The record is a 101-nucleotide RNA sequence from Paenibacillus sp. Root444D2, which matches "Purine riboswitch aptamer" in Rfam.

RNA sequence: GUGUUAUGGAUAACAGUUUUUCGUAUAAUCUCGGGAAUUGGCCUGAGAGUUUCUACGAGAUCACCGCAAAUGAUCUGGCUACGAAAAAAAGGAACGGAAUC
Numbered sequence: 001g002u003g004u005u006a007u008g009g010a011u012a013a014c015a016g017u018u019u020u021u022c023g024u025a026u027a028a029u030c031u032c033g034g035g036a037a038u039u040g041g042c043c044u045g046a047g048a049g050u051u052u053c054u055a056c057g058a059g060a061u062c063a064c065c066g067c068a069a070a071u072g073a074u075c076u077g078g079c080u081a082c083g084a085a086a087a088a089a090a091g092g093a094a095c096g097g098a099a100u101c
Base pairs, nucleotide, nucleotide: 018087019086020085021084022083023082024081025080029048030047031046032045033044034043035042058076059075060074061073062072063071